[Rfam]
RNA: gut-2 RNA
Nucleotides: 048
Stems, first nucleotide, its partner, number of pairs: 004025008029042004
Number, partner (000 for none) and nucleotide at each position: 001000a002000u003000c004025c005024a006023u007022g008021c009020g010019g011018u012000a013000a014000u015000u016000g017000g018011a019010u020009c021008g022007u023006a024005u025004g026000a027000a028000g029042g030041a031040c032039u033000a034000a035000u036000u037000g038000g039032a040031g041030u042029c043000a044000g045000g046000u047000a048000u